[Rfam]
The family of this 121-nucleotide sequence from Paenibacillus protaetiae is "epsC RNA". Pairs were carried over by alignment from the consensus structure, which is taken from published work.

Nucleotides: 121
Base pairs, nucleotide, nucleotide: 001020002019003018004017007035008034009033010032011031012030013029036104037103038102039101040099041098042097043096044095045094046093047092050074051073052072053071054070056066057065077088078087079086080085107121108120109119110118111117
Number, partner (000 for none) and nucleotide at each position: 001020a002019g003018g004017u005000a006000a007035u008034g009033u010032c011031u012030g013029c014000u015000g016000c017004a018003c019002c020001u021000a022000u023000a024000u025000c026000a027000c028000c029013g030012c031011a032010g033009g034008c035007a036104c037103u038102c039101g040099a041098u042097c043096g044095c045094g046093c047092u048000g049000u050074g051073g052072g053071c054070u055000a056066u057065c058000c059000c060000c061000a062000a063000g064000c065057g066056g067000a068000g069000c070054a071053g072052c073051c074050u075000u076000a077088g078087g079086c080085a081000u082000c083000c084000u085080u086079g087078c088077c089000g090000g091000u092047g093046g094045c095044g096043c097042g098041a099040u100000g101039u102038g103037a104036g105000g106000a107121c108120g109119g110118g111117u112000u113000c114000g115000a116000u117111g118110c119109c120108c121107g
Rfam classes the family as a cis-regulatory element.